[Rfam]
RNA sequence: CCUGAACGACAGGGGAGCGCCACCCUAGGGCGCUGAGAGUGCGGACCACCGCAGACCCUCGAACCUGAUCCGGUUAGUACCGGUGGAGGAAGUCGGGCUUCUCGUCCC
Numbered sequence: 001c002c003u004g005a006a007c008g009a010c011a012g013g014g015g016a017g018c019g020c021c022a023c024c025c026u027a028g029g030g031c032g033c034u035g036a037g038a039g040u041g042c043g044g045a046c047c048a049c050c051g052c053a054g055a056c057c058c059u060c061g062a063a064c065c066u067g068a069u070c071c072g073g074u075u076a077g078u079a080c081c082g083g084u085g086g087a088g089g090a091a092g093u094c095g096g097g098c099u100u101c102u103c104g105u106c107c108c
Stems, first nucleotide, its partner, number of pairs: 007095004011059004017033005040053005064089003070083004